This 98-nucleotide RNA from Apium graveolens belongs to the Rfam family "Small nucleolar RNA snoR26".
By type it is a C/D-box small nucleolar RNA.
[Rfam]
RNA sequence: GCAGAAGCUAUGAGGAAUAUAAAUGCUUUUUGUUAUCCUUGCACUUUGAGGUUAAACUGUGAAGAAUAUUACGGGCAAAAGUUGUUUCUGAGCUUCUG
Number, nucleotide and partner (000 for none) at each position: 001g000002c098003a097004g096005a095006a094007g093008c092009u000010a000011u000012g000013a000014g000015g000016a000017a000018u000019a000020u000021a000022a000023a000024u000025g000026c000027u000028u000029u000030u000031u000032g000033u000034u000035a000036u000037c000038c000039u000040u000041g000042c000043a000044c000045u000046u000047u000048g000049a000050g000051g000052u000053u000054a000055a000056a000057c000058u000059g000060u000061g000062a000063a000064g000065a000066a000067u000068a000069u000070u000071a000072c000073g000074g000075g000076c000077a000078a000079a000080a000081g000082u000083u000084g000085u000086u000087u000088c000089u000090g000091a000092g008093c007094u006095u005096c004097u003098g002
The base pairs follow the family's consensus structure, which was predicted with WAR. For this family Rfam cites "Multiple snoRNA gene clusters from Arabidopsis" (Brown et al., RNA, 2001).